[Rfam]
Rfam assigns this 133-nucleotide sequence from Denticeps clupeoides to the family "U8 small nucleolar RNA". The family has 55 seed sequences and 1,597 matches in Rfam 15.1. NCBI's taxonomy places the organism under Eukaryota, Chordata, Vertebrata, Gnathostomata, Denticeps.

RNA sequence: UCUUCAGUAAGGUUAAUCCUUACCUGUUACUCUCAUUGAGAGUUUCAGAACAUGAUGAAUGGGACGUGAUGAGGUAGUGAUUAUCUCUCCUCUCCUGGAAGGAACUGCAACACCUUCCAGGGGCCAUUCUGAC
Numbered sequence: 001u002c003u004u005c006a007g008u009a010a011g012g013u014u015a016a017u018c019c020u021u022a023c024c025u026g027u028u029a030c031u032c033u034c035a036u037u038g039a040g041a042g043u044u045u046c047a048g049a050a051c052a053u054g055a056u057g058a059a060u061g062g063g064a065c066g067u068g069a070u071g072a073g074g075u076a077g078u079g080a081u082u083a084u085c086u087c088u089c090c091u092c093u094c095c096u097g098g099a100a101g102g103a104a105c106u107g108c109a110a111c112a113c114c115u116u117c118c119a120g121g122g123g124c125c126a127u128u129c130u131g132a133c
Base pairs, nucleotide, nucleotide: 024048025047026046029043030042031041032040033039071089072088074086076084078083093122094121095120096119097118098117099116100115101114